Source information: The family of this 56-nucleotide sequence from Monodelphis domestica is "mir-15_2 microRNA precursor family". The source organism's lineage runs through Eukaryota, Tetrapoda, Metatheria, Didelphimorphia and Monodelphis.
RNA sequence: AGCAGCACGCCAUGGUUUGUAGAGAUACGGUGAUACAAACCAUCGUGGGCUGUUAC
Numbered sequence: 001a002g003c004a005g006c007a008c009g010c011c012a013u014g015g016u017u018u019g020u021a022g023a024g025a026u027a028c029g030g031u032g033a034u035a036c037a038a039a040c041c042a043u044c045g046u047g048g049g050c051u052g053u054u055a056c
Stems, first nucleotide, its partner, number of pairs: 001054006008047003012043010
Rfam's curators put it in the seed alignment.